[Rfam]
RNA sequence: GUUGCCCUCAUCUGUAGGUCGCUUUGGAUAAAAGCGUCUGCUAAAUGACUGAAU
Numbered sequence: 001g002u003u004g005c006c007c008u009c010a011u012c013u014g015u016a017g018g019u020c021g022c023u024u025u026g027g028a029u030a031a032a033a034g035c036g037u038c039u040g041c042u043a044a045a046u047g048a049c050u051g052a053a054u
Base pairs, nucleotide, nucleotide: 013043014041015040016039020036021035022034023033024032025031
Dot-bracket structure: ............((((...((((((.....))))))..))).)...........
Description:
A member of the RNA family "UnaL2 LINE 3' element" from Triplophysa rosa, 54 nucleotides long. Pairs were carried over by alignment from the consensus structure, which is taken from published work. On this family, see Baba et al., RNA 2004: "Solution structure of an RNA stem-loop derived from the 3' conserved region of eel LINE UnaL2". Taxonomically the source falls in Triplophysa (Eukaryota, Metazoa, Actinopterygii, Neopterygii).